The family of this 104-nucleotide RNA sequence from Frigoribacterium sp. Leaf164 is "Glycine riboswitch aptamer". Taxonomically the source falls in Frigoribacterium (Bacteria, Bacillati, Actinomycetes, Micrococcales). Rfam describes the family as follows. This family represents the bacterial glycine riboswitch.
[Rfam]
RNA sequence: GAACACGUCGCGGGAGAGCUCCGGUGCGCAGAUGCUGCGCCGACCGGGCACCGAAGGAGCAAGCUCCCCGCCAAUCUCUCAGGUACGCGUACCGCGACGGACUG
Numbered sequence: 001g002a003a004c005a006c007g008u009c010g011c012g013g014g015a016g017a018g019c020u021c022c023g024g025u026g027c028g029c030a031g032a033u034g035c036u037g038c039g040c041c042g043a044c045c046g047g048g049c050a051c052c053g054a055a056g057g058a059g060c061a062a063g064c065u066c067c068c069c070g071c072c073a074a075u076c077u078c079u080c081a082g083g084u085a086c087g088c089g090u091a092c093c094g095c096g097a098c099g100g101a102c103u104g
Stems, first nucleotide, its partner, number of pairs: 006099008020048006050084003053080002057078003063071002